[Rfam]
Source information: Shown here is a 329-nucleotide sequence from Rhinopithecus roxellana, a member of the family "7SK RNA". It scores 294 bits against the family's covariance model. About the family: 7SK was discovered as an abundant small nuclear RNA in the mid-70s but a possible function has only recently been suggested. The organism belongs to Rhinopithecus, within Eukaryota.
RNA sequence: GGAUGGGAGAGCGAUCUGGCUGCAACAUCCGUCACCCCAUUGAUUGCCAGGAUUGAUUCGGCUGAUCUGGCUGGCCAGGCAGGUGUCCCCCUCCUCCCUCUCUGCUCCAUGUGUGUCCCUCCUGAAGCUGCACACUGUCGAAGAGGACAACCAUCCCUAAUAGAGGAAGACUGGUCUUCAGUCAAGGGUAUAUAAGUAGCUGAGCCCCCCUGCUAGAACCUCCAAACAAGCUCUCGAGGUCCAUUUGUAGGAGAACAUAGGGUAGUCAAGUUUCCAAGACUCCAGACACAUUCAAAUGAGGUGCUAUAUGUGGUAGUCUGCCUUUAAAA
Numbered sequence: 001g002g003a004u005g006g007g008a009g010a011g012c013g014a015u016c017u018g019g020c021u022g023c024a025a026c027a028u029c030c031g032u033c034a035c036c037c038c039a040u041u042g043a044u045u046g047c048c049a050g051g052a053u054u055g056a057u058u059c060g061g062c063u064g065a066u067c068u069g070g071c072u073g074g075c076c077a078g079g080c081a082g083g084u085g086u087c088c089c090c091c092u093c094c095u096c097c098c099u100c101u102c103u104g105c106u107c108c109a110u111g112u113g114u115g116u117c118c119c120u121c122c123u124g125a126a127g128c129u130g131c132a133c134a135c136u137g138u139c140g141a142a143g144a145g146g147a148c149a150a151c152c153a154u155c156c157c158u159a160a161u162a163g164a165g166g167a168a169g170a171c172u173g174g175u176c177u178u179c180a181g182u183c184a185a186g187g188g189u190a191u192a193u194a195a196g197u198a199g200c201u202g203a204g205c206c207c208c209c210c211u212g213c214u215a216g217a218a219c220c221u222c223c224a225a226a227c228a229a230g231c232u233c234u235c236g237a238g239g240u241c242c243a244u245u246u247g248u249a250g251g252a253g254a255a256c257a258u259a260g261g262g263u264a265g266u267c268a269a270g271u272u273u274c275c276a277a278g279a280c281u282c283c284a285g286a287c288a289c290a291u292u293c294a295a296a297u298g299a300g301g302u303g304c305u306a307u308a309u310g311u312g313g314u315a316g317u318c319u320g321c322c323u324u325u326a327a328a329a
Stems, first nucleotide, its partner, number of pairs: 001108003005102005011096001013093002018090002025086005031080003035074002037070003042067004046062003116169001118166004122137001124135001127133001138160001140158001145156003199271003205265001208262005220253004226248005298324005303317005
The base pairs follow the family's consensus structure, which is taken from published work. Its Rfam clan is "7SK clan".